[Rfam]
RNA sequence: CCUGCCGAAGUUUCCCUCAGGAUAGCAGAAACUCAGAUCAGUUUUAUGAGGUAAAGCGAAUGAUUAGAGGCCUUGGGGAAGUAAUUUCCUCAACCUAUUCUCAAACUUUAAAUAUGUAAGACGCCCUUGUCGCUUAAUUGGACGUGGGCUUUUCGAAUGAGAGUUCCUAGUGGGCCAUUUUUGGUAAGCAGAACAGGCGAUGCCGGGAUGAACCGAACGCAAGGUUAAGGUGCCGGAAUGCACGCUCAUCAGACACCAGAAAAGGUGUUAGUUCAUCUAGACAGCAGGACGGUGGCCAUGGAAGUCGGAAUCCGCUAAGGAGUGUGUAACAACUCACCUGCCGAAUGAACUAGCCCUGAAAAUGGAUGGCGCUUAAGCGUGCUACCCAUACCUCGCCGUCUGGGUUAAUUAUGAAGCUUAGACGAGUAGGCAGGCGUGGAGGUCAGUGACGAAGCCUUGGGCGUAAGCCUGGGUCGAACGGCCUCUAGUGCAGAU
Numbered sequence: 001c002c003u004g005c006c007g008a009a010g011u012u013u014c015c016c017u018c019a020g021g022a023u024a025g026c027a028g029a030a031a032c033u034c035a036g037a038u039c040a041g042u043u044u045u046a047u048g049a050g051g052u053a054a055a056g057c058g059a060a061u062g063a064u065u066a067g068a069g070g071c072c073u074u075g076g077g078g079a080a081g082u083a084a085u086u087u088c089c090u091c092a093a094c095c096u097a098u099u100c101u102c103a104a105a106c107u108u109u110a111a112a113u114a115u116g117u118a119a120g121a122c123g124c125c126c127u128u129g130u131c132g133c134u135u136a137a138u139u140g141g142a143c144g145u146g147g148g149c150u151u152u153u154c155g156a157a158u159g160a161g162a163g164u165u166c167c168u169a170g171u172g173g174g175c176c177a178u179u180u181u182u183g184g185u186a187a188g189c190a191g192a193a194c195a196g197g198c199g200a201u202g203c204c205g206g207g208a209u210g211a212a213c214c215g216a217a218c219g220c221a222a223g224g225u226u227a228a229g230g231u232g233c234c235g236g237a238a239u240g241c242a243c244g245c246u247c248a249u250c251a252g253a254c255a256c257c258a259g260a261a262a263a264g265g266u267g268u269u270a271g272u273u274c275a276u277c278u279a280g281a282c283a284g285c286a287g288g289a290c291g292g293u294g295g296c297c298a299u300g301g302a303a304g305u306c307g308g309a310a311u312c313c314g315c316u317a318a319g320g321a322g323u324g325u326g327u328a329a330c331a332a333c334u335c336a337c338c339u340g341c342c343g344a345a346u347g348a349a350c351u352a353g354c355c356c357u358g359a360a361a362a363u364g365g366a367u368g369g370c371g372c373u374u375a376a377g378c379g380u381g382c383u384a385c386c387c388a389u390a391c392c393u394c395g396c397c398g399u400c401u402g403g404g405u406u407a408a409u410u411a412u413g414a415a416g417c418u419u420a421g422a423c424g425a426g427u428a429g430g431c432a433g434g435c436g437u438g439g440a441g442g443u444c445a446g447u448g449a450c451g452a453a454g455c456c457u458u459g460g461g462c463g464u465a466a467g468c469c470u471g472g473g474u475c476g477a478a479c480g481g482c483c484u485c486u487a488g489u490g491c492a493g494a495u
Stems, first nucleotide, its partner, number of pairs: 001434006011024001013022003027168002030165004042121007054109001055107002061103003066098001068096003073093006080086001123149004128144004174198003179193005204215003219396002222393002225390001229386003238383001240382001243379003263357003267354010284341005290314003296308002315319001320335001324333002397424009435490001437487008446479002454474002460469003